[Rfam]
RNA sequence: UGCCGAGCUGCAUACUUCCUUACAUGCCCAUACUGUACUGUGAAUGGAUAUGGAAUGUAAAGAAGUAUGUAGAACGGAA
Dot-bracket structure: .......(((((((((((.((((((..(((((................))))).)))))).))))))))))).......
Description
A member of the RNA family "mir-1 microRNA precursor family" from Caenorhabditis briggsae, 79 nucleotides long. It is one of the family's seed sequences. A reference for the family is Ambros (2001), "microRNAs: tiny regulators with great potential", Cell. From the family's description: This family represents the microRNA (miRNA) mir-1 family. miRNAs are transcribed as ~70nt precursors (modelled here) and subsequently processed by the Dicer enzyme to give a ~22nt product. In this case the mature sequence comes from the 3' arm of the precursor. The extents of the hairpin precursors are not generally known and are estimated based on hairpin prediction. The products are thought to have regulatory roles through complementarity to mRNA. The involvement of Dicer in miRNA processing suggests a relationship with the phenomenon of RNA interference. miRNAs are numbered based on the sequence of the mature RNA. This family also contains the mir-206 from human, which appears to be related to mir-1. The organism belongs to Caenorhabditis, within Eukaryota.